A member of the RNA family "Small nucleolar RNA SNORD30" from Erpetoichthys calabaricus, 75 nucleotides long. It is annotated as a C/D-box small nucleolar RNA. Rfam 15.1 lists 367 matches to the family in 268 species. Clan: SNORD30 clan. A reference for the family is Tycowski et al. (1996), "A mammalian gene with introns instead of exons generating stable RNA products", Nature. The base pairs follow the family's consensus structure.

[Rfam]
RNA sequence: UGCAAUGAUGAUUUUUUUAUCAUGGAAUCUCGUUCGGCUGAAAAUUGCUGUUGAGCCUUUAAUGAUCUGAUGCUG
Numbered sequence: 001u002g003c004a005a006u007g008a009u010g011a012u013u014u015u016u017u018u019a020u021c022a023u024g025g026a027a028u029c030u031c032g033u034u035c036g037g038c039u040g041a042a043a044a045u046u047g048c049u050g051u052u053g054a055g056c057c058u059u060u061a062a063u064g065a066u067c068u069g070a071u072g073c074u075g
Stems, first nucleotide, its partner, number of pairs: 029055004035050004